Record summary: The record is a 95-nucleotide RNA, which matches "SAM riboswitch aptamer (S box leader)" in Rfam. It is one of the family's seed sequences. A reference for the family is Epshtein et al. (2003), "The riboswitch-mediated control of sulfur metabolism in bacteria", Proc Natl Acad Sci U S A.
RNA sequence: CUCUUAUCAAGAUAGGUGGAGGGACUUGGCCCAAUGAAGCCUCGGCAACCGAAACAUAGGUGCCACUUCCAACCGAUGUAUCUGAGAGAUAGGAG
Dot-bracket structure: ((((((((.....((((...(((..[[[[)))......)))).((((.((........))))))...(]]]](.((....)).)..)))))))))
Numbered sequence: 001c002u003c004u005u006a007u008c009a010a011g012a013u014a015g016g017u018g019g020a021g022g023g024a025c026u027u028g029g030c031c032c033a034a035u036g037a038a039g040c041c042u043c044g045g046c047a048a049c050c051g052a053a054a055c056a057u058a059g060g061u062g063c064c065a066c067u068u069c070c071a072a073c074c075g076a077u078g079u080a081u082c083u084g085a086g087a088g089a090u091a092g093g094a095g
Stems, first nucleotide, its partner, number of pairs: 001095008014042004021032003026072004044064004049060002068087001073084001075082002